[Rfam]
RNA sequence: AUAGCACUUUAGGGGUGCCGAAAGGCUGAGAUAAUACCCUCCAACCUGCUCUGGAUAAUGCCAGCGAAGGGAAAAGUAUUCAAUCUUUU
Numbered sequence: 001a002u003a004g005c006a007c008u009u010u011a012g013g014g015g016u017g018c019c020g021a022a023a024g025g026c027u028g029a030g031a032u033a034a035u036a037c038c039c040u041c042c043a044a045c046c047u048g049c050u051c052u053g054g055a056u057a058a059u060g061c062c063a064g065c066g067a068a069g070g071g072a073a074a075a076g077u078a079u080u081c082a083a084u085c086u087u088u089u
Base pairs, nucleotide, nucleotide: 006077007076008075009074010073011040012039013038014037016034017026018025019024045070046069047068051064052063053062054061
RNA: TPP riboswitch aptamer (THI element)
Organism: Flavihumibacter sp. ZG627